[Rfam]
Shown here is a 172-nucleotide RNA from Oryza barthii, a member of the family "MIR2118 microRNA precursor family". A reference for the family is Zhu et al. (2008), "A diverse set of microRNAs and microRNA-like small RNAs in developing rice grains", Genome Res. A search with the family's covariance model found it, with a score of 156 bits.
RNA sequence: GUUAGGAAGAGGAAGAAAUUGAGUGUCUAAGAGCAGUGGGAAUGGGAACAUUAAGGAAAGCCUACAGUAUUUUCUUCUCCACUAGAAUUAGGGGUGAAGAUAAUUCUUUUGUGUUUUCCUAAUGCCUCCCAUUCCUAUUGUUGUUAAAUACUCCUUCCUCUUCCUUUUGGCU
Numbered sequence: 001g002u003u004a005g006g007a008a009g010a011g012g013a014a015g016a017a018a019u020u021g022a023g024u025g026u027c028u029a030a031g032a033g034c035a036g037u038g039g040g041a042a043u044g045g046g047a048a049c050a051u052u053a054a055g056g057a058a059a060g061c062c063u064a065c066a067g068u069a070u071u072u073u074c075u076u077c078u079c080c081a082c083u084a085g086a087a088u089u090a091g092g093g094g095u096g097a098a099g100a101u102a103a104u105u106c107u108u109u110u111g112u113g114u115u116u117u118c119c120u121a122a123u124g125c126c127u128c129c130c131a132u133u134c135c136u137a138u139u140g141u142u143g144u145u146a147a148a149u150a151c152u153c154c155u156u157c158c159u160c161u162u163c164c165u166u167u168u169g170g171c172u
Stems, first nucleotide, its partner, number of pairs: 009163005015157003021153003026148001028146003032142004037137011049124003053120001055119007